[Rfam]
RNA sequence: GAAGUUGGCUGGGCAGUCGCUGUGUCGUUAACGGUGCAGAGGAAAGUCCGGGCUCCGUAGGGCGAGGUGCCAGGUAACGCCUGGGCGGCGUGAGCCGACGGAAAGUGCCGCAGAAAACAGACCGCCGAUGGCCCGACCAACGGGCUCAGGCAAGGGUGAAAAGGUGCGGUAAGAGCGCACCGCGCGGGUGGCAACACUCCGUGGCACGGUAAACCCCACCUGGAGCAAGACCAAAUAGGGAAGCGAGCGUGUGGCCCGCACGGCUUUCGGGUAGGUCGCUUGAGGUGCGCGGUGACGCGUACUCCAGAGGAAUGGCUGCCUUCGACAGAACCCGGCUUAUAGGCCGGCUUCCCGU
Numbered sequence: 001g002a003a004g005u006u007g008g009c010u011g012g013g014c015a016g017u018c019g020c021u022g023u024g025u026c027g028u029u030a031a032c033g034g035u036g037c038a039g040a041g042g043a044a045a046g047u048c049c050g051g052g053c054u055c056c057g058u059a060g061g062g063c064g065a066g067g068u069g070c071c072a073g074g075u076a077a078c079g080c081c082u083g084g085g086c087g088g089c090g091u092g093a094g095c096c097g098a099c100g101g102a103a104a105g106u107g108c109c110g111c112a113g114a115a116a117a118c119a120g121a122c123c124g125c126c127g128a129u130g131g132c133c134c135g136a137c138c139a140a141c142g143g144g145c146u147c148a149g150g151c152a153a154g155g156g157u158g159a160a161a162a163g164g165u166g167c168g169g170u171a172a173g174a175g176c177g178c179a180c181c182g183c184g185c186g187g188g189u190g191g192c193a194a195c196a197c198u199c200c201g202u203g204g205c206a207c208g209g210u211a212a213a214c215c216c217c218a219c220c221u222g223g224a225g226c227a228a229g230a231c232c233a234a235a236u237a238g239g240g241a242a243g244c245g246a247g248c249g250u251g252u253g254g255c256c257c258g259c260a261c262g263g264c265u266u267u268c269g270g271g272u273a274g275g276u277c278g279c280u281u282g283a284g285g286u287g288c289g290c291g292g293u294g295a296c297g298c299g300u301a302c303u304c305c306a307g308a309g310g311a312a313u314g315g316c317u318g319c320c321u322u323c324g325a326c327a328g329a330a331c332c333c334g335g336c337u338u339a340u341a342g343g344c345c346g347g348c349u350u351c352c353c354g355u
Stems, first nucleotide, its partner, number of pairs: 001351010011340001012320007020039008044338003048335005053225004060257004065221005070084005085099001086097004100216002105214002107210003122155002124151003129148003133144002163181006182205001183203005188197003229277004239268006248262005284303008
Rfam assigns this 355-nucleotide RNA sequence from Nitrococcus mobilis to the family "Bacterial RNase P class A".
The organism belongs to Nitrococcus mobilis, within Bacteria.
It is one of the family's seed sequences.
Ribonuclease P (RNase P) is a ubiquitous endoribonuclease, found in archaea, bacteria and eukarya as well as chloroplasts and mitochondria.
By type it is a ribozyme.